[Rfam]
Annotation:
A member of the RNA family "Group II catalytic intron D1-D4-3" from Vagococcus allomyrinae, 172 nucleotides long.
RNA sequence: GCAUUCGCGAGAAUGUAGCUGAAGGAAGCGUGUAUCAAACUCUUGGCUCGACGAACAGAAAUCUGAUAUUAAGGCUGGAUAAGUGGACGAGGUUCCACAACAAAUCAAAGUCCAAAAGAUGUGCGUAAACUUAUCUAGUAAAUCAGGCGAGUAAAAGAUGAAAGUUAGUUGU
Numbered sequence: 001g002c003a004u005u006c007g008c009g010a011g012a013a014u015g016u017a018g019c020u021g022a023a024g025g026a027a028g029c030g031u032g033u034a035u036c037a038a039a040c041u042c043u044u045g046g047c048u049c050g051a052c053g054a055a056c057a058g059a060a061a062u063c064u065g066a067u068a069u070u071a072a073g074g075c076u077g078g079a080u081a082a083g084u085g086g087a088c089g090a091g092g093u094u095c096c097a098c099a100a101c102a103a104a105u106c107a108a109a110g111u112c113c114a115a116a117a118g119a120u121g122u123g124c125g126u127a128a129a130c131u132u133a134u135c136u137a138g139u140a141a142a143u144c145a146g147g148c149g150a151g152u153a154a155a156a157g158a159u160g161a162a163a164g165u166u167a168g169u170u171g172u
Stems, first nucleotide, its partner, number of pairs: 001016006028172003036164001041158004046152005062147006074139003078135007085113004091106004
Lineage of the source: Bacteria > Bacillota > Bacilli > Enterococcaceae > Vagococcus.